The record is a 117-nucleotide RNA from Medicago truncatula, which matches "U5 spliceosomal RNA" in Rfam.
From the family's description: U5 RNA is a component of both types of known spliceosome.
The family's consensus secondary structure is taken from published work.
Nucleotides: 117
Stems, first nucleotide, its partner, number of pairs: 003077004008067005014061005027053008095117001099116006
Number, partner (000 for none) and nucleotide at each position: 001000a002000g003077c004076c005075g006074u007000g008067u009066g010065a011064u012063g013000a014061u015060c016059a017058c018057a019000u020000a021000g022000c023000g024000a025000a026000c027053u028052a029051u030050u031049c032048u033047u034046u035000c036000g037000c038000c039000u040000u041000u042000u043000a044000c045000u046034a047033a048032a049031g050030a051029a052028u053027a054000c055000c056000g057018u058017g059016u060015g061014a062000g063012c064011g065010u066009c067008a068000c069000a070000a071000u072000u073000a074006g075005c076004g077003g078000c079000a080000u081000a082000c083000g084000c085000u086000a087000g088000u089000u090000u091000u092000u093000g094000g095117a096000a097000g098000a099116g100115u101114c102113u103112u104111c105000u106000u107000u108000a109000u110000u111104g112103a113102g114101g115100g116099c117095u